RNA sequence: UAGGGCGUGCGCGACUGGCGAUAGGCUGGCCCCUAUCAAGGGGCAAGGCCGACGUGGGAUACCACUGGGAAGCGCACCGCCGGCUGUCAUCGGUGACAGCGGCGUUUAGCCGUUCGCCUGGGCAGCCCUU
Numbered sequence: 001u002a003g004g005g006c007g008u009g010c011g012c013g014a015c016u017g018g019c020g021a022u023a024g025g026c027u028g029g030c031c032c033c034u035a036u037c038a039a040g041g042g043g044c045a046a047g048g049c050c051g052a053c054g055u056g057g058g059a060u061a062c063c064a065c066u067g068g069g070a071a072g073c074g075c076a077c078c079g080c081c082g083g084c085u086g087u088c089a090u091c092g093g094u095g096a097c098a099g100c101g102g103c104g105u106u107u108a109g110c111c112g113u114u115c116g117c118c119u120g121g122g123c124a125g126c127c128c129u130u
Stems, first nucleotide, its partner, number of pairs: 003081002007077006015069002017118005054065004107125001109123003
The family of this 130-nucleotide RNA sequence from Polaromonas eurypsychrophila is "ZMP/ZTP riboswitch aptamer (pfl RNA motif)".
A search with the family's covariance model found it, with a score of 54 bits.